[Rfam]
RNA sequence: UGCGUCACUGUCAGUAACAAGGAUUCAUCCUGUUGUGAUGCUCCAAGGCUGACAGGAAAUCACUGUUACUGGGGGGGAGUGU
Numbered sequence: 001u002g003c004g005u006c007a008c009u010g011u012c013a014g015u016a017a018c019a020a021g022g023a024u025u026c027a028u029c030c031u032g033u034u035g036u037g038a039u040g041c042u043c044c045a046a047g048g049c050u051g052a053c054a055g056g057a058a059a060u061c062a063c064u065g066u067u068a069c070u071g072g073g074g075g076g077g078a079g080u081g082u
Stems, first nucleotide, its partner, number of pairs: 011072009022061004029056007037049001039047001
Dot-bracket structure: ..........(((((((((..((((...(((((((.(.(.......).)))))))).))))..)))))))))..........

Shown here is an 82-nucleotide RNA from Channa argus, a member of the family "mir-459 microRNA precursor family". A search with the family's covariance model found it, with a score of 72 bits. Pairs were carried over by alignment from the consensus structure, which was predicted with RNAalifold. Gene Ontology terms of the family: RISC complex and miRNA-mediated post-transcriptional gene silencing.